[Rfam]
RNA sequence: UGAGUAGAUCGGAUGGUCGCGUGCUUUUAGCAUGAGGAAAGUCCGAGCUCCAUAAGGUAGGAUGCUGGGCAACACCCAGUGGGGGUGACCCUAAGGAUAGUGCAACAGAAAGAUACCGCCUGAUUUAUCAGGUAAGGGUGGAAAGGCGAGGUAAGAGCUCACCAGCGGCUAGGUGACUAGUCGGCUAUGUAAACCCCAUCCGGAGCAAGACCAAGUAGGGACAAAAGGUGACAGUUGCCUGCUGUCGUCCCAAUGGUAGGUCGCAUGAACCUAUUGGUAACAAUAGGUCAUAGAUAGAUGACCAUCUAAGACAGAACUCGGCUUACAGAUCUACUCGUUGA
Numbered sequence: 001u002g003a004g005u006a007g008a009u010c011g012g013a014u015g016g017u018c019g020c021g022u023g024c025u026u027u028u029a030g031c032a033u034g035a036g037g038a039a040a041g042u043c044c045g046a047g048c049u050c051c052a053u054a055a056g057g058u059a060g061g062a063u064g065c066u067g068g069g070c071a072a073c074a075c076c077c078a079g080u081g082g083g084g085g086u087g088a089c090c091c092u093a094a095g096g097a098u099a100g101u102g103c104a105a106c107a108g109a110a111a112g113a114u115a116c117c118g119c120c121u122g123a124u125u126u127a128u129c130a131g132g133u134a135a136g137g138g139u140g141g142a143a144a145g146g147c148g149a150g151g152u153a154a155g156a157g158c159u160c161a162c163c164a165g166c167g168g169c170u171a172g173g174u175g176a177c178u179a180g181u182c183g184g185c186u187a188u189g190u191a192a193a194c195c196c197c198a199u200c201c202g203g204a205g206c207a208a209g210a211c212c213a214a215g216u217a218g219g220g221a222c223a224a225a226a227g228g229u230g231a232c233a234g235u236u237g238c239c240u241g242c243u244g245u246c247g248u249c250c251c252a253a254u255g256g257u258a259g260g261u262c263g264c265a266u267g268a269a270c271c272u273a274u275u276g277g278u279a280a281c282a283a284u285a286g287g288u289c290a291u292a293g294a295u296a297g298a299u300g301a302c303c304a305u306c307u308a309a310g311a312c313a314g315a316a317c318u319c320g321g322c323u324u325a326c327a328g329a330u331c332u333a334c335u336c337g338u339u340g341a
Stems, first nucleotide, its partner, number of pairs: 001337010011326001012306007020034006039324003043321005048205004055240004060201005065079005080094001081092004095196002100194002102190003116137002118133006145163002148160003165185001166183007209262004219250004231245005269288008
RNA: Bacterial RNase P class A
Organism: Anaerosalibacter bizertensis